[Rfam]
A member of the RNA family "speF leader" from Rhizobium etli, 156 nucleotides long.

RNA sequence: UCCCUGCUUUCCAUCAGCGGGGGUUACUGAAGAGGCACACCAUCAUUGCCGGAAGUGCGGUUGGGACUCUCCCUCCAAUCCAUGGCAGACAAAGCCGAACUUACACCGCAUCGCGGCGUUGGUUCACUAUCCGCGCAUCGAGCGCUUGCUAUGGUU
Numbered sequence: 001u002c003c004c005u006g007c008u009u010u011c012c013a014u015c016a017g018c019g020g021g022g023g024u025u026a027c028u029g030a031a032g033a034g035g036c037a038c039a040c041c042a043u044c045a046u047u048g049c050c051g052g053a054a055g056u057g058c059g060g061u062u063g064g065g066a067c068u069c070u071c072c073c074u075c076c077a078a079u080c081c082a083u084g085g086c087a088g089a090c091a092a093a094g095c096c097g098a099a100c101u102u103a104c105a106c107c108g109c110a111u112c113g114c115g116g117c118g119u120u121g122g123u124u125c126a127c128u129a130u131c132c133g134c135g136c137a138u139c140g141a142g143c144g145c146u147u148g149c150u151a152u153g154g155u156u
Stems, first nucleotide, its partner, number of pairs: 001023008034050004057136003084096002104118001106116003
This family is a putative regulatory RNA structure that is found upstream of the speF gene encoding ornithine decarboxylase in Agrobacterium tumefaciens and other alpha-proteobacteria.
The family's consensus secondary structure was predicted with RNAalifold.
The family's RNA type in Rfam is cis-regulatory leader.
It scores 108 bits against the family's covariance model.